[Rfam]
RNA: Group II catalytic intron D1-D4-1
Organism: Anaerobacterium chartisolvens
RNA sequence: GAAGCAUGGUUGAAACAAGAUUUGCCAUGAGAAGUCAGCAGAUACCAUAUUAGCGACCUAAUCAACAAGGCCGUGAAGGGU
Dot-bracket structure: ((..(.((.(...).)).).))...........(((....)))(((......(((.((..........)).)))....)))